Shown here is a 273-nucleotide RNA from Nannospalax galili, a member of the family "Mason-Pfizer monkey virus packaging signal".
Rfam classes the family as a cis-regulatory element.
The match comes from Rfam's covariance-model search (160 bits).
[Rfam]
RNA sequence: UGGCGCCCAACGUGGGGCCUGGAUCCUGGGGACAGUGUGAGGGACACGACGGAGGAAAAAGGGGGUGCACACCCGCUCAAAUAAUUCGGAGAUGCUGCGGGAGCCUGCCGUGACUGAGCUGAAGGUAAGUUAGUCAUUCAAUCAUGGGGCAAGAAUUAAGUCAGCAUCAGAUUUAUGUGAUACAGUUAAGAGAAGCUCUGCAGGCAAGAGGAGUAAAGGUUAAAACUGAGGAUUUAUUUCAUUUCUUUGAUUUUGUAAAGGACAUUUGUCCUU
Numbered sequence: 001u002g003g004c005g006c007c008c009a010a011c012g013u014g015g016g017g018c019c020u021g022g023a024u025c026c027u028g029g030g031g032a033c034a035g036u037g038u039g040a041g042g043g044a045c046a047c048g049a050c051g052g053a054g055g056a057a058a059a060a061g062g063g064g065g066u067g068c069a070c071a072c073c074c075g076c077u078c079a080a081a082u083a084a085u086u087c088g089g090a091g092a093u094g095c096u097g098c099g100g101g102a103g104c105c106u107g108c109c110g111u112g113a114c115u116g117a118g119c120u121g122a123a124g125g126u127a128a129g130u131u132a133g134u135c136a137u138u139c140a141a142u143c144a145u146g147g148g149g150c151a152a153g154a155a156u157u158a159a160g161u162c163a164g165c166a167u168c169a170g171a172u173u174u175a176u177g178u179g180a181u182a183c184a185g186u187u188a189a190g191a192g193a194a195g196c197u198c199u200g201c202a203g204g205c206a207a208g209a210g211g212a213g214u215a216a217a218g219g220u221u222a223a224a225a226c227u228g229a230g231g232a233u234u235u236a237u238u239u240c241a242u243u244u245c246u247u248u249g250a251u252u253u254u255g256u257a258a259a260g261g262a263c264a265u266u267u268g269u270c271c272u273u
Stems, first nucleotide, its partner, number of pairs: 006031003012026001014024001036048003083126001085124001086122002096112005131152001133150002137148004157200002160196002208248006217235005258273006